[Rfam]
RNA sequence: CGUGUGGUGCCUGUGCAGGUUUUUCCUGGCAUGGGAGAGCGACACGGCCUUAACUGAGGU
Numbered sequence: 001c002g003u004g005u006g007g008u009g010c011c012u013g014u015g016c017a018g019g020u021u022u023u024u025c026c027u028g029g030c031a032u033g034g035g036a037g038a039g040c041g042a043c044a045c046g047g048c049c050u051u052a053a054c055u056g057a058g059g060u
Base pairs, nucleotide, nucleotide: 001046002045003044004043005042007040008039010035011034012033013032014031015030
RNA: L31-Gammaproteobacteria ribosomal protein leader